Shown here is a 112-nucleotide sequence from Astyanax mexicanus, a member of the family "Small nucleolar RNA U6-53/MBII-28". Lineage of the source: Eukaryota > Chordata > Vertebrata > Otomorpha > Astyanax. The family's RNA type in Rfam is C/D-box small nucleolar RNA.
RNA sequence: UUCCCAUGAAGAGUUUUGCCAUGCUAAUACUGAUAUGCCAGAUAGACUGUGUCUCUCUUGGCGUAAGUGAGUUCAACUCAACUUCUCACACUGGCAGUGUGAUCUGAGGAAA
Numbered sequence: 001u002u003c004c005c006a007u008g009a010a011g012a013g014u015u016u017u018g019c020c021a022u023g024c025u026a027a028u029a030c031u032g033a034u035a036u037g038c039c040a041g042a043u044a045g046a047c048u049g050u051g052u053c054u055c056u057c058u059u060g061g062c063g064u065a066a067g068u069g070a071g072u073u074c075a076a077c078u079c080a081a082c083u084u085c086u087c088a089c090a091c092u093g094g095c096a097g098u099g100u101g102a103u104c105u106g107a108g109g110a111a112a
Stems, first nucleotide, its partner, number of pairs: 001111004044054004